[Rfam]
RNA: L2-Alphaproteobacteria ribosomal protein leader
RNA sequence: UGGCACCUACGGGGGCCUCAAACAUAGCGGCGGGAUCACCCGCUGCACGCUAAACGGAAGACAGAAA
Number, nucleotide and partner (000 for none) at each position: 001u000002g017003g016004c015005a000006c014007c013008u012009a000010c000011g000012g008013g007014g006015g004016c003017c002018u000019c000020a000021a000022a000023c000024a000025u000026a000027g046028c045029g044030g043031c042032g041033g040034g000035a000036u000037c000038a000039c000040c033041c032042g031043c030044u029045g028046c027047a000048c000049g000050c000051u000052a000053a000054a000055c000056g000057g000058a000059a000060g000061a000062c000063a000064g000065a000066a000067a000